[Rfam]
RNA: Bacterial small signal recognition particle RNA
Organism: Ignavibacteria bacterium
Nucleotides: 096
Stems, first nucleotide, its partner, number of pairs: 004090005009083006015075001017074006024066004034059004042051003
Number, partner (000 for none) and nucleotide at each position: 001000u002000u003000c004090c005089a006088g007087g008086c009083c010082c011081g012080g013079c014078u015075a016000a017074u018073g019072a020071g021070u022069u023000a024066g025065u026064g027063c028000c029000c030000a031000a032000c033000c034059c035058c036057a037056c038000g039000a040000g041000g042051u043050c044049c045000g046000g047000a048000a049044g050043g051042a052000a053000g054000c055000a056037g057036u058035g059034g060000u061000a062000a063027g064026u065025a066024c067000g068000a069022a070021g071020c072019u073018u074017g075015u076000g077000u078014a079013g080012c081011c082010g083009g084000u085000a086008g087007c088006c089005u090004g091000g092000a093000u094000u095000u096000u